[Rfam]
A member of the RNA family "Small nucleolar RNA R21" from Cucumis melo, 79 nucleotides long. Rfam 15.1 lists 472 matches to the family in 146 species. By type it is a C/D-box small nucleolar RNA. The family's consensus secondary structure was predicted with PFOLD.

RNA sequence: UGUCCCUAUGAUGAUUGAUUGGAAUUAUAAAAGUAGUGGACUGAAUCUUACUGAUGAGAAGUAUCAAUCCUGAGGGAUA
Numbered sequence: 001u002g003u004c005c006c007u008a009u010g011a012u013g014a015u016u017g018a019u020u021g022g023a024a025u026u027a028u029a030a031a032a033g034u035a036g037u038g039g040a041c042u043g044a045a046u047c048u049u050a051c052u053g054a055u056g057a058g059a060a061g062u063a064u065c066a067a068u069c070c071u072g073a074g075g076g077a078u079a
Stems, first nucleotide, its partner, number of pairs: 001079006